Shown here is an 81-nucleotide sequence from Dickeya dadantii, a member of the family "antisense RNA of dnaA mRNA". The source organism's lineage runs through Bacteria, Enterobacterales, Pectobacteriaceae, Dickeya and Dickeya dadantii.
RNA sequence: CUUGGCAUUCGGCUUGCGAGCGAUAAUGCCAUUGCCCACCGCGUGCAGCAGGUGGGUUUUACCCAGACCGGUGCCGCCGUA
Numbered sequence: 001c002u003u004g005g006c007a008u009u010c011g012g013c014u015u016g017c018g019a020g021c022g023a024u025a026a027u028g029c030c031a032u033u034g035c036c037c038a039c040c041g042c043g044u045g046c047a048g049c050a051g052g053u054g055g056g057u058u059u060u061a062c063c064c065a066g067a068c069c070g071g072u073g074c075c076g077c078c079g080u081a
Base pairs, nucleotide, nucleotide: 005042006041009038011036012035013034016032018030020029021028051078052077053076054075056074057073061072062071063070
The family's consensus secondary structure was predicted with RNAfold. On this family, see Dadzie et al., PLoS One 2013: "Identification and characterization of a cis-encoded antisense RNA associated with the replication process of Salmonella enterica serovar Typhi".